A member of the RNA family "mir-202 microRNA precursor family" from Ceuthmochares aereus, 76 nucleotides long. A reference for the family is Chen et al. (2005), "The developmental miRNA profiles of zebrafish as determined by small RNA cloning", Genes Dev. The family has 23 seed sequences and 673 matches in Rfam 15.1. Rfam links the family to the GO terms miRNA-mediated post-transcriptional gene silencing and RISC complex. The family's consensus secondary structure was predicted with RNAalifold.

RNA sequence: UUGUUCGUUUUUCCUAUGCAUAUACUUCUUUGGGACCUGACUCUAAAGAGGCAUAGGGCAUGGGAAAAUGGAGCAA
Number, nucleotide and partner (000 for none) at each position: 001u000002u000003g000004u000005u000006c000007g000008u000009u000010u067011u066012u065013c064014c063015u062016a061017u060018g059019c058020a000021u055022a054023u053024a000025c051026u050027u049028c048029u047030u046031u045032g044033g000034g000035a000036c000037c000038u000039g000040a000041c000042u000043c000044u032045a031046a030047a029048g028049a027050g026051g025052c000053a023054u022055a021056g000057g000058g019059c018060a017061u016062g015063g014064g013065a012066a011067a010068a000069u000070g000071g000072a000073g000074c000075a000076a000